Notes: Shown here is a 318-nucleotide RNA sequence from Rattus norvegicus, a member of the family "7SK RNA". A reference for the family is Blencowe (2002), "Transcription: surprising role for an elusive small nuclear RNA", Curr Biol. Pairs were carried over by alignment from the consensus structure, which is taken from published work. The family is grouped with related families in Rfam's "7SK clan". NCBI's taxonomy places the organism under Eukaryota, Opisthokonta, Euteleostomi, Mammalia, Rattus. The family's RNA type in Rfam is non-coding RNA gene.

RNA sequence: GGAUGUGAGGGCGAUCUGGCUGCGACAUCUGUCACCCCAUUGAUCGCCAGGGUUGAUUCGGCUGAUCUGGCUGGCUAGGCGGGUGUCCCCUUCCUCCCUCACCGCUCCAUGUGCGUCCCUCCCGAAGCUGCGCGCUCGGUCGAAGAGGACGACCUUCCCCGAAUAGAGGAGGACCGGUCUUCGGUCAAGGGUAUACGAGUAGCUGUGCUCCCCUGCUAGAACCUCCAAACAAGCUCUCAAGGAAAAGAACUUCAGCAGGGUACACGGGUGAUAAUGCUUCUACAAACCACUUUAAAUGCCACAGUCACAGCUUCCUGG
Numbered sequence: 001g002g003a004u005g006u007g008a009g010g011g012c013g014a015u016c017u018g019g020c021u022g023c024g025a026c027a028u029c030u031g032u033c034a035c036c037c038c039a040u041u042g043a044u045c046g047c048c049a050g051g052g053u054u055g056a057u058u059c060g061g062c063u064g065a066u067c068u069g070g071c072u073g074g075c076u077a078g079g080c081g082g083g084u085g086u087c088c089c090c091u092u093c094c095u096c097c098c099u100c101a102c103c104g105c106u107c108c109a110u111g112u113g114c115g116u117c118c119c120u121c122c123c124g125a126a127g128c129u130g131c132g133c134g135c136u137c138g139g140u141c142g143a144a145g146a147g148g149a150c151g152a153c154c155u156u157c158c159c160c161g162a163a164u165a166g167a168g169g170a171g172g173a174c175c176g177g178u179c180u181u182c183g184g185u186c187a188a189g190g191g192u193a194u195a196c197g198a199g200u201a202g203c204u205g206u207g208c209u210c211c212c213c214u215g216c217u218a219g220a221a222c223c224u225c226c227a228a229a230c231a232a233g234c235u236c237u238c239a240a241g242g243a244a245a246a247g248a249a250c251u252u253c254a255g256c257a258g259g260g261u262a263c264a265c266g267g268g269u270g271a272u273a274a275u276g277c278u279u280c281u282a283c284a285a286a287c288c289a290c291u292u293u294a295a296a297u298g299c300c301a302c303a304g305u306c307a308c309a310g311c312u313u314c315c316u317g318g
Stems, first nucleotide, its partner, number of pairs: 001108003005102007013093002018090002024087010035074002037070003042067004046062003116172002118169004122139004127135002140162003147158003202269003209262001211260006224249001226247001299318002303312003